[Rfam]
RNA sequence: AGUGGCUGGUGCAGAAUACGCGCCUUGCAAAUAACCGACGUUUAAUCGCGUCGGUUAUUUUUUUGC
Numbered sequence: 001a002g003u004g005g006c007u008g009g010u011g012c013a014g015a016a017u018a019c020g021c022g023c024c025u026u027g028c029a030a031a032u033a034a035c036c037g038a039c040g041u042u043u044a045a046u047c048g049c050g051u052c053g054g055u056u057a058u059u060u061u062u063u064u065g066c
Base pairs, nucleotide, nucleotide: 011021012020032057033056034055035054036053037052038051039050040049

The record is a 66-nucleotide sequence from Brenneria goodwinii, which matches "Enterobacterial sRNA STnc240" in Rfam. It is annotated as a small RNA. The base pairs follow the family's consensus structure, which was predicted with WAR.